[Rfam]
RNA sequence: CCCAAACAGAGAGAAGCCUGCCGUUUGCGUUGGGAUUUCUGAUUAUCUUUAGUCCGGCUUGUCUCGCGUCCGGUCCUCUGCUUGAUUUCGAAAGCGCUGUUGCCGAUUCUCAAUUUUUCCUGGCGUGAUACGGUUGCAGAUUAGCUUAUGCAGAUUAUGGGGUGCGAAAGACUGAAAGCAUGGUGAGAUUCAUUCCGAGUUCCUACACUGCUAACUAGAAUCGAGUGUCGACUGGGCAUGAGGACGGAAUGGGCACGGCGUCCAGAUCGGGACCCAUCUAGAGUUGGUGUCAAAGCUUAGUGCUUGUCUGAGCUGGGUAGCGCUGUACCUUUUGCCUGAUUCUCGAAAGUUAAUGCUUGUUUCUCUUAUAAGAGGUGUUUCUGGAGUGGAUGAUCUCAUGGAGGGGCUCGGAAUAUGGGCAGGCUCGUUGGGGGCAGCCCUGGGUUGUCUCUUCGGAGGCAACCCCUCCAAACUUUGGGG
Numbered sequence: 001c002c003c004a005a006a007c008a009g010a011g012a013g014a015a016g017c018c019u020g021c022c023g024u025u026u027g028c029g030u031u032g033g034g035a036u037u038u039c040u041g042a043u044u045a046u047c048u049u050u051a052g053u054c055c056g057g058c059u060u061g062u063c064u065c066g067c068g069u070c071c072g073g074u075c076c077u078c079u080g081c082u083u084g085a086u087u088u089c090g091a092a093a094g095c096g097c098u099g100u101u102g103c104c105g106a107u108u109c110u111c112a113a114u115u116u117u118u119c120c121u122g123g124c125g126u127g128a129u130a131c132g133g134u135u136g137c138a139g140a141u142u143a144g145c146u147u148a149u150g151c152a153g154a155u156u157a158u159g160g161g162g163u164g165c166g167a168a169a170g171a172c173u174g175a176a177a178g179c180a181u182g183g184u185g186a187g188a189u190u191c192a193u194u195c196c197g198a199g200u201u202c203c204u205a206c207a208c209u210g211c212u213a214a215c216u217a218g219a220a221u222c223g224a225g226u227g228u229c230g231a232c233u234g235g236g237c238a239u240g241a242g243g244a245c246g247g248a249a250u251g252g253g254c255a256c257g258g259c260g261u262c263c264a265g266a267u268c269g270g271g272a273c274c275c276a277u278c279u280a281g282a283g284u285u286g287g288u289g290u291c292a293a294a295g296c297u298u299a300g301u302g303c304u305u306g307u308c309u310g311a312g313c314u315g316g317g318u319a320g321c322g323c324u325g326u327a328c329c330u331u332u333u334g335c336c337u338g339a340u341u342c343u344c345g346a347a348a349g350u351u352a353a354u355g356c357u358u359g360u361u362u363c364u365c366u367u368a369u370a371a372g373a374g375g376u377g378u379u380u381c382u383g384g385a386g387u388g389g390a391u392g393a394u395c396u397c398a399u400g401g402a403g404g405g406g407c408u409c410g411g412a413a414u415a416u417g418g419g420c421a422g423g424c425u426c427g428u429u430g431g432g433g434g435c436a437g438c439c440c441u442g443g444g445u446u447g448u449c450u451c452u453u454c455g456g457a458g459g460c461a462a463c464c465c466c467u468c469c470a471a472a473c474u475u476u477g478g479g480g
Stems, first nucleotide, its partner, number of pairs: 271291003274287003293305004
A member of the RNA family "Ascomycota telomerase RNA" from Lachnellula cervina, 480 nucleotides of a longer RNA. NCBI's taxonomy places the organism under Eukaryota, Opisthokonta, Pezizomycotina, Lachnaceae, Lachnellula. Pairs were carried over by alignment from the consensus structure. The family is grouped with related families in Rfam's "Telomerase clan". It scores 98 bits against the family's covariance model.